[Rfam]
RNA sequence: GCCGGACGAGGUAGCUCUUGUCUGUAACCCAAGCGGGGGUAAAUAUGGUGGGUUUGGACAAUGGUCUGGAUCAUGCUCGGUUGGGUCUAAAUUGGCUAAAUCUGGCUUGCCCUUUUCAAGUUGAGAGUUGGUUCAUGUGACUGGAGCGAAGGCUUUGGUCACAUGUGCAUUAGACGGGGGGCAUUGCGUUAGGCUGGUUUCACAGAGCUGCGACAACCCUUGGCUCCUAACAGUGGUUGGAUAACAAGCCUGGGCUCAUUAGGCUCACUACACCGAAUGGUCCAAACCAAUUGGACACCCACUUUU
Numbered sequence: 001g002c003c004g005g006a007c008g009a010g011g012u013a014g015c016u017c018u019u020g021u022c023u024g025u026a027a028c029c030c031a032a033g034c035g036g037g038g039g040u041a042a043a044u045a046u047g048g049u050g051g052g053u054u055u056g057g058a059c060a061a062u063g064g065u066c067u068g069g070a071u072c073a074u075g076c077u078c079g080g081u082u083g084g085g086u087c088u089a090a091a092u093u094g095g096c097u098a099a100a101u102c103u104g105g106c107u108u109g110c111c112c113u114u115u116u117c118a119a120g121u122u123g124a125g126a127g128u129u130g131g132u133u134c135a136u137g138u139g140a141c142u143g144g145a146g147c148g149a150a151g152g153c154u155u156u157g158g159u160c161a162c163a164u165g166u167g168c169a170u171u172a173g174a175c176g177g178g179g180g181g182c183a184u185u186g187c188g189u190u191a192g193g194c195u196g197g198u199u200u201c202a203c204a205g206a207g208c209u210g211c212g213a214c215a216a217c218c219c220u221u222g223g224c225u226c227c228u229a230a231c232a233g234u235g236g237u238u239g240g241a242u243a244a245c246a247a248g249c250c251u252g253g254g255c256u257c258a259u260u261a262g263g264c265u266c267a268c269u270a271c272a273c274c275g276a277a278u279g280g281u282c283c284a285a286a287c288c289a290a291u292u293g294g295a296c297a298c299c300c301a302c303u304u305u306u
Stems, first nucleotide, its partner, number of pairs: 001040003004023008028037003045305001047303007056296001059293002062290001064288001065286001067284004072280001077276005083266008092258001094255001096254002102252001104250006111240002116236003120231004125226004131168002134165014170174001175222006187212003194205003